Rfam assigns this 369-nucleotide RNA sequence from Microlunatus kandeliicorticis to the family "transfer-messenger RNA". NCBI's taxonomy places the organism under Bacteria, Actinomycetota, Actinomycetes, Propionibacteriales, Microlunatus. Rfam describes the family as follows. Bacterial tmRNA, also known as 10Sa RNA or SsrA, is named for its dual tRNA and mRNA-like properties.
[Rfam]
RNA sequence: GGGGGUGAUCGGUUUCGACUUGGGACGAUAGUUCCAGGAGAAGCGGGCCGAGAAUCCAAGGUCAACUCGUUAAUGUCCCUUGGAAACCAACAAGUGCCAACUCUAAGCGCACUGACUUCGCUCUCGCUGCCUGAGCAGUGACCGAAGGGUCAGACCGGGUGCGUCUCCGACCCGGACCCUGGCCUCGACUAGGAGACUCACUCGUCAGGAGCGGCCACUGAGCCUGACGAGGACACCUUGAGUGGCUGGGCUUGUCUGCAACUUGUCAGCAUGAGUGCAGGGGCCGAGUAGAACGCUGAGCUGACUGCGCCCGGAGAAGACCUGGUUCGUCGCUCGAGGACGCGGGUUCGAUUCCCGCCACCUCCACGA
Numbered sequence: 001g002g003g004g005g006u007g008a009u010c011g012g013u014u015u016c017g018a019c020u021u022g023g024g025a026c027g028a029u030a031g032u033u034c035c036a037g038g039a040g041a042a043g044c045g046g047g048c049c050g051a052g053a054a055u056c057c058a059a060g061g062u063c064a065a066c067u068c069g070u071u072a073a074u075g076u077c078c079c080u081u082g083g084a085a086a087c088c089a090a091c092a093a094g095u096g097c098c099a100a101c102u103c104u105a106a107g108c109g110c111a112c113u114g115a116c117u118u119c120g121c122u123c124u125c126g127c128u129g130c131c132u133g134a135g136c137a138g139u140g141a142c143c144g145a146a147g148g149g150u151c152a153g154a155c156c157g158g159g160u161g162c163g164u165c166u167c168c169g170a171c172c173c174g175g176a177c178c179c180u181g182g183c184c185u186c187g188a189c190u191a192g193g194a195g196a197c198u199c200a201c202u203c204g205u206c207a208g209g210a211g212c213g214g215c216c217a218c219u220g221a222g223c224c225u226g227a228c229g230a231g232g233a234c235a236c237c238u239u240g241a242g243u244g245g246c247u248g249g250g251c252u253u254g255u256c257u258g259c260a261a262c263u264u265g266u267c268a269g270c271a272u273g274a275g276u277g278c279a280g281g282g283g284c285c286g287a288g289u290a291g292a293a294c295g296c297u298g299a300g301c302u303g304a305c306u307g308c309g310c311c312c313g314g315a316g317a318a319g320a321c322c323u324g325g326u327u328c329g330u331c332g333c334u335c336g337a338g339g340a341c342g343c344g345g346g347u348u349c350g351a352u353u354c355c356c357g358c359c360a361c362c363u364c365c366a367c368g369a
Stems, first nucleotide, its partner, number of pairs: 001365007019338006027330001031328001034325005044313005049069004055084007124141007148184006155175006163197006201231009213247006249285005256280003261276003265305004272299001342358005